[Rfam]
Nucleotides: 087
Stems, first nucleotide, its partner, number of pairs: 023077008035068008048059004
Number, partner (000 for none) and nucleotide at each position: 001000c002000c003000g004000u005000c006000a007000g008000g009000c010000g011000a012000u013000c014000a015000a016000a017000u018000c019000c020000g021000c022000a023077c024076a025075c026074g027073c028072g029071u030070c031000g032000a033000c034000a035068c036067g037066g038065u039064u040063u041062c042061c043000u044000g045000g046000g047000u048059g049058c050057c051056c052000g053000a054000a055000a056051g057050g058049g059048u060000u061042g062041g063040a064039g065038a066037u067036c068035g069000g070030g071029a072028u073027g074026c075025g076024u077023g078000g079000a080000g081000g082000c083000c084000u085000a086000a087000c

A member of the RNA family "t44 RNA" from Pseudomonas flexibilis, 87 nucleotides long. Rfam describes the family as follows. This family consists of a number of bacterial RNA genes of between 135 and 170 bases in length. The family's RNA type in Rfam is small RNA. NCBI's taxonomy places the organism under Bacteria, Pseudomonadota, Pseudomonadales, Pseudomonadaceae, Pseudomonas. The match comes from Rfam's covariance-model search (73 bits).